[Rfam]
RNA sequence: CGGGGAAAGAAGACCCUGUUGAGCUUGACUCUAGUCUGACUUUGUGAAAUGAGUUCCGAGAUAUAGCCUAGGUGGGAGCUUCGGCGUCCUGGAAAACCACUGCUCGCUUAACCAUUUUGCUUACUCCAUGAAGAAGCAACCAUUCGUUUGGUUCUUAGAUUUAAGUUCUAGCAUUUGACUAGAAUGAGUUUUGUGGAGGACAUAGUCAGGUGGGGAGUUUGACUGGGGCGGUACAUCUGUUAAACAAUAACGCAGGUGUCCUACGGUGAGCUCAAAGAGAACAGAAAUCUCUUGUAGACCAAAAGGGGAAAAGCUCACUUGAUUUUGAUUUUCAGUACUAAUACAAACCGCGAAAGCGUGGCCUAUCGAUCCUUUAACUUUACAAGGUUUAAGCUAGAGGUGUCAGAAAAGUUACCACAGGGAUAACUGGCUUGUGGCAGCCAAGCGCCCAUAGCGACGUUGCUUUUUGAUCCUUCGAUGUCGGCUCUUCCUAUCAUUGUGAAGCACAAUUCACAACGUGUUGGAUUGUUCACCCGUUAAUAGGGAACGUGAGCUGGGUUUAGACCGUCGUGAGACAGGUUAGUUUUACCCUA
Numbered sequence: 001c002g003g004g005g006a007a008a009g010a011a012g013a014c015c016c017u018g019u020u021g022a023g024c025u026u027g028a029c030u031c032u033a034g035u036c037u038g039a040c041u042u043u044g045u046g047a048a049a050u051g052a053g054u055u056c057c058g059a060g061a062u063a064u065a066g067c068c069u070a071g072g073u074g075g076g077a078g079c080u081u082c083g084g085c086g087u088c089c090u091g092g093a094a095a096a097c098c099a100c101u102g103c104u105c106g107c108u109u110a111a112c113c114a115u116u117u118u119g120c121u122u123a124c125u126c127c128a129u130g131a132a133g134a135a136g137c138a139a140c141c142a143u144u145c146g147u148u149u150g151g152u153u154c155u156u157a158g159a160u161u162u163a164a165g166u167u168c169u170a171g172c173a174u175u176u177g178a179c180u181a182g183a184a185u186g187a188g189u190u191u192u193g194u195g196g197a198g199g200a201c202a203u204a205g206u207c208a209g210g211u212g213g214g215g216a217g218u219u220u221g222a223c224u225g226g227g228g229c230g231g232u233a234c235a236u237c238u239g240u241u242a243a244a245c246a247a248u249a250a251c252g253c254a255g256g257u258g259u260c261c262u263a264c265g266g267u268g269a270g271c272u273c274a275a276a277g278a279g280a281a282c283a284g285a286a287a288u289c290u291c292u293u294g295u296a297g298a299c300c301a302a303a304a305g306g307g308g309a310a311a312a313g314c315u316c317a318c319u320u321g322a323u324u325u326u327g328a329u330u331u332u333c334a335g336u337a338c339u340a341a342u343a344c345a346a347a348c349c350g351c352g353a354a355a356g357c358g359u360g361g362c363c364u365a366u367c368g369a370u371c372c373u374u375u376a377a378c379u380u381u382a383c384a385a386g387g388u389u390u391a392a393g394c395u396a397g398a399g400g401u402g403u404c405a406g407a408a409a410a411g412u413u414a415c416c417a418c419a420g421g422g423a424u425a426a427c428u429g430g431c432u433u434g435u436g437g438c439a440g441c442c443a444a445g446c447g448c449c450c451a452u453a454g455c456g457a458c459g460u461u462g463c464u465u466u467u468u469g470a471u472c473c474u475u476c477g478a479u480g481u482c483g484g485c486u487c488u489u490c491c492u493a494u495c496a497u498u499g500u501g502a503a504g505c506a507c508a509a510u511u512c513a514c515a516a517c518g519u520g521u522u523g524g525a526u527u528g529u530u531c532a533c534c535c536g537u538u539a540a541u542a543g544g545g546a547a548c549g550u551g552a553g554c555u556g557g558g559u560u561u562a563g564a565c566c567g568u569c570g571u572g573a574g575a576c577a578g579g580u581u582a583g584u585u586u587u588a589c590c591c592u593a
Base pairs, nucleotide, nucleotide: 003592004591005590007587008586015421016420017419018418020417021416022413023412024411025410026409028218029217030216031215035210036209037208038207039206040205041204044120045119046118047117048116049115050114051113057106058105059104060103071101072100073099074098075097078085079084124198125197126196127195128194134191135190136189137188141150142149165185166184167183168182169181170180171179221234222232223231224230235257236256237255238254239253240252260361261360266318267317268316269315270314271313272298273297275293276292277291278290279289280288299308300307323347324346325345328342329341330340349358350357351356372399373398374397375396376395379393380392381391382390430471432469434468436464437463438462439461440460441459445455446454482557483555484554485553486552487549488546489545490544491543492542495520496519498515499514500513501512502511503510522536523535524534526532563581564580565579566578567576568575569574
This 593-nucleotide part of an RNA from Lepeophtheirus salmonis belongs to the Rfam family "Eukaryotic large subunit ribosomal RNA". Taxonomically the source falls in Lepeophtheirus (Eukaryota, Eumetazoa, Ecdysozoa, Pancrustacea). Gene Ontology terms of the family: ribosome and structural constituent of ribosome. The literature on the family includes a 2001 paper in Science by Yusupov et al., "Crystal structure of the ribosome at 5.5 A resolution".